The record is a 75-nucleotide RNA from Crocodylus porosus, which matches "Mammalian CPEB3 ribozyme" in Rfam. The family's consensus secondary structure is taken from published work. Rfam 15.1 lists 5,706 matches to the family in 197 species.
RNA sequence: AGUGUACUUAACAGCCGUAACAAAAGCACUCAUGUUGCAGCCCUUUCAGAUUCUAAUGAAUCUGUGAAUUCUGCU
Numbered sequence: 001a002g003u004g005u006a007c008u009u010a011a012c013a014g015c016c017g018u019a020a021c022a023a024a025a026g027c028a029c030u031c032a033u034g035u036u037g038c039a040g041c042c043c044u045u046u047c048a049g050a051u052u053c054u055a056a057u058g059a060a061u062c063u064g065u066g067a068a069u070u071c072u073g074c075u
Base pairs, nucleotide, nucleotide: 014041015040019075021073022072024070025069026038027037028036047064048063049062050061051060052059053058